U11 spliceosomal RNA: a 127-nucleotide RNA from Dendrobium catenatum.
Rfam classes the family as a spliceosomal small nuclear RNA.
RNA sequence: AAAAAGAGUCGGUUGGCUAUGUAUGCCACACAUAUCUUUAAAUGAUGGGCGUUGUAUGGUUAUAAAGACAUAUGGCUGAUAUAAUUUAUGGAUGGUAUAGGGUUGGCUUGCUUGGCUAAUCCUUUUU
Numbered sequence: 001a002a003a004a005a006g007a008g009u010c011g012g013u014u015g016g017c018u019a020u021g022u023a024u025g026c027c028a029c030a031c032a033u034a035u036c037u038u039u040a041a042a043u044g045a046u047g048g049g050c051g052u053u054g055u056a057u058g059g060u061u062a063u064a065a066a067g068a069c070a071u072a073u074g075g076c077u078g079a080u081a082u083a084a085u086u087u088a089u090g091g092a093u094g095g096u097a098u099a100g101g102g103u104u105g106g107c108u109u110g111c112u113u114g115g116c117u118a119a120u121c122c123u124u125u126u127u
Stems, first nucleotide, its partner, number of pairs: 008080005014028004029051001031049001033047004052075007097125001099123010
Dot-bracket structure: .......(((((.((((.......))))(.(.((((.......)))).).)(((((((..........))))))))))))................(.((((((((((.....)))))))))).)..
Its family is annotated with U11 snRNP, mRNA 5'-splice site recognition and pre-mRNA 5'-splice site binding in the Gene Ontology. The source organism's lineage runs through Eukaryota, Viridiplantae, Mesangiospermae, Orchidaceae and Dendrobium. Pairs were carried over by alignment from the consensus structure, which is taken from published work.